[Rfam]
Nucleotides: 071
Base pairs, nucleotide, nucleotide: 001070003068004067005066006065007064010024011023012022013021026042027041028040029039030038047063048062049061050060051059
Number, partner (000 for none) and nucleotide at each position: 001070g002000u003068g004067g005066g006065g007064a008000u009000g010024g011023u012022g013021u014000a015000a016000c017000g018000g019000c020000a021013a022012c023011a024010u025000c026042u027041c028040g029039g030038u031000c032000u033000c034000c035000a036000a037000a038030a039029c040028c041027g042026a043000u044000g045000a046000u047063c048062u049061g050060a051059g052000u053000u054000c055000a056000a057000a058000u059051c060050u061049c062048a063047g064007u065006c066005c067004c068003c069000u070001c071000g
Rfam assigns this 71-nucleotide sequence from Microcoleus sp. FACHB-831 to the family "tRNA". Lineage of the source: Bacteria > Bacillati > Oscillatoriales > Microcoleaceae > Microcoleus. The match comes from Rfam's covariance-model search (56 bits). Pairs were carried over by alignment from the consensus structure, which is taken from published work. Rfam links the family to the GO term triplet codon-amino acid adaptor activity.